[Rfam]
The family of this 65-nucleotide RNA sequence is "int-alpA RNA".

RNA sequence: GACCAGCCUAGCCCGACGGGGCGAAAAGCGGGCUUCCCACCCGCCAGGCUAGUUGAUUUAUGGGA
Numbered sequence: 001g002a003c004c005a006g007c008c009u010a011g012c013c014c015g016a017c018g019g020g021g022c023g024a025a026a027a028g029c030g031g032g033c034u035u036c037c038c039a040c041c042c043g044c045c046a047g048g049c050u051a052g053u054u055g056a057u058u059u060a061u062g063g064g065a
Stems, first nucleotide, its partner, number of pairs: 001054003005050004011022004028044005035065005
The base pairs follow the family's consensus structure, which is taken from published work.